[Rfam]
RNA sequence: CCAGAACUUUAAUGUGGAUGUACUUGCUUUGUUUCUGAAAAAGUAAGUGCUUCCAUGUUUUAGUGCUGG
Numbered sequence: 001c002c003a004g005a006a007c008u009u010u011a012a013u014g015u016g017g018a019u020g021u022a023c024u025u026g027c028u029u030u031g032u033u034u035c036u037g038a039a040a041a042a043g044u045a046a047g048u049g050c051u052u053c054c055a056u057g058u059u060u061u062a063g064u065g066c067u068g069g
Base pairs, nucleotide, nucleotide: 001069002068003067006064007063008062011059012058013057014056015055016054017053018052020050021049022048023047024046025045026044027043028042
The record is a 69-nucleotide RNA sequence from Alligator sinensis, which matches "mir-302 microRNA precursor family" in Rfam. Its Rfam clan is "mir-290 clan". The organism belongs to Alligator, within Eukaryota. The base pairs follow the family's consensus structure, which was predicted with RNAalifold.